Rfam assigns this 55-nucleotide sequence to the family "Streptococcus sRNA SpF59 (ldcC RNA)". A reference for the family is Mann et al. (2012), "Control of virulence by small RNAs in Streptococcus pneumoniae", PLoS Pathog.
[Rfam]
RNA sequence: GGAUCACUUCCCAUUGGGAAGUUAAGGCCAUACGGACAGCCGGGUCCACUGCCGA
Numbered sequence: 001g002g003a004u005c006a007c008u009u010c011c012c013a014u015u016g017g018g019a020a021g022u023u024a025a026g027g028c029c030a031u032a033c034g035g036a037c038a039g040c041c042g043g044g045u046c047c048a049c050u051g052c053c054g055a
Stems, first nucleotide, its partner, number of pairs: 001047005006022006